[Rfam]
RNA: RNase MRP
RNA sequence: UGAUUCAAACUUGCCUUCGCACCAGGACACAAACGAGUUUCUGAUAACUCUAAGUUCAAUUCCUGUGGAAAAGUCCCCGGGCAUAAAGGUAGAAAGUACCGAGUUGUAAGUUCUUUUCACACUUUCGCAGGUCCUCACUUAUUACAAGACGAGAACUAACAAUUCUUGGAUUUAUAGUGAUGUUGACAUGAGAGUGUGAUUAUGGCCAGUUAUGAAAUAUAGUUAUGCAAGGAAAUUAAACUCAACGGGGCUCACACAGUACGAAUC
Numbered sequence: 001u002g003a004u005u006c007a008a009a010c011u012u013g014c015c016u017u018c019g020c021a022c023c024a025g026g027a028c029a030c031a032a033a034c035g036a037g038u039u040u041c042u043g044a045u046a047a048c049u050c051u052a053a054g055u056u057c058a059a060u061u062c063c064u065g066u067g068g069a070a071a072a073g074u075c076c077c078c079g080g081g082c083a084u085a086a087a088g089g090u091a092g093a094a095a096g097u098a099c100c101g102a103g104u105u106g107u108a109a110g111u112u113c114u115u116u117u118c119a120c121a122c123u124u125u126c127g128c129a130g131g132u133c134c135u136c137a138c139u140u141a142u143u144a145c146a147a148g149a150c151g152a153g154a155a156c157u158a159a160c161a162a163u164u165c166u167u168g169g170a171u172u173u174a175u176a177g178u179g180a181u182g183u184u185g186a187c188a189u190g191a192g193a194g195u196g197u198g199a200u201u202a203u204g205g206c207c208a209g210u211u212a213u214g215a216a217a218u219a220u221a222g223u224u225a226u227g228c229a230a231g232g233a234a235a236u237u238a239a240a241c242u243c244a245a246c247g248g249g250g251c252u253c254a255c256a257c258a259g260u261a262c263g264a265a266u267c
Base pairs, nucleotide, nucleotide: 002267003266004265005264006263009260010259011258014232015231016230017229019228020227023067024064025063026062027061035050036049037048038047039046072252073251075250076249077248078247088100089099090098091097101116102115103114106111118204119203125199126198127197128196129195134192135191136190137189146184147183149181